[Rfam]
RNA sequence: GACCGACAUCAGGGAUUCAUUUUGUGAACCGUUGCCGACGGCCAGGUAGGAGUGCAUCCCCAGCUCUUUCAUCUGCUGCUCGCCAAUCACGCGGGUGACGACGUUUUUGCUGUAGGAGUCAGCCAGCUGGCGCGCCUGGGAGGCGAGAUAGCCAGCGUUACAGAUGUUUGGCGGCAUGUUGCCGAGGUCUUUCGC
Numbered sequence: 001g002a003c004c005g006a007c008a009u010c011a012g013g014g015a016u017u018c019a020u021u022u023u024g025u026g027a028a029c030c031g032u033u034g035c036c037g038a039c040g041g042c043c044a045g046g047u048a049g050g051a052g053u054g055c056a057u058c059c060c061c062a063g064c065u066c067u068u069u070c071a072u073c074u075g076c077u078g079c080u081c082g083c084c085a086a087u088c089a090c091g092c093g094g095g096u097g098a099c100g101a102c103g104u105u106u107u108u109g110c111u112g113u114a115g116g117a118g119u120c121a122g123c124c125a126g127c128u129g130g131c132g133c134g135c136c137u138g139g140g141a142g143g144c145g146a147g148a149u150a151g152c153c154a155g156c157g158u159u160a161c162a163g164a165u166g167u168u169u170g171g172c173g174g175c176a177u178g179u180u181g182c183c184g185a186g187g188u189c190u191u192u193c194g195c
Base pairs, nucleotide, nucleotide: 005189006188007187012032014030016028017027018026019025020024034042035041050059062077063076064075078135079134081132082131083130084129085128087126091123092122094120095119096118099112100111102109103108136163137162138161140159141158143156144155167186168185169184170183171182172181

Rfam assigns this 195-nucleotide RNA sequence to the family "Yersinia sRNA 276".
For this family Rfam cites "Transcriptomic profiling of Yersinia pseudotuberculosis reveals reprogramming of the Crp regulon by temperature and uncovers Crp as a master regulator of small RNAs" (Nuss et al., PLoS Genet, 2015).
By type it is an antisense RNA.
Pairs were carried over by alignment from the consensus structure, which was predicted with RNAfold.
The match comes from Rfam's covariance-model search (178 bits).